A member of the RNA family "Purine riboswitch aptamer" from Romboutsia sp. CE17, 102 nucleotides long.
The organism belongs to Romboutsia, within Bacteria.
The base pairs follow the family's consensus structure, which is taken from published work.
Gene Ontology term of the family: purine nucleobase biosynthetic process.
It scores 86 bits against the family's covariance model.
[Rfam]
RNA sequence: AAGAAAAUUGAAUAUAUUUCCUGUAUAUUUUUGAUGAUAGGGUUCAAAUGUUUCUACCAAGCUACCGUAAAUUGCUUGACUACAGGAGUUUAAAAUAUAAUU
Numbered sequence: 001a002a003g004a005a006a007a008u009u010g011a012a013u014a015u016a017u018u019u020c021c022u023g024u025a026u027a028u029u030u031u032u033g034a035u036g037a038u039a040g041g042g043u044u045c046a047a048a049u050g051u052u053u054c055u056a057c058c059a060a061g062c063u064a065c066c067g068u069a070a071a072u073u074g075c076u077u078g079a080c081u082a083c084a085g086g087a088g089u090u091u092a093a094a095a096u097a098u099a100a101u102u
Stems, first nucleotide, its partner, number of pairs: 018088008030048005058078005064072001
Dot-bracket structure: .................((((((((....(((((.........))))).........(((((.(.......).)))))..))))))))..............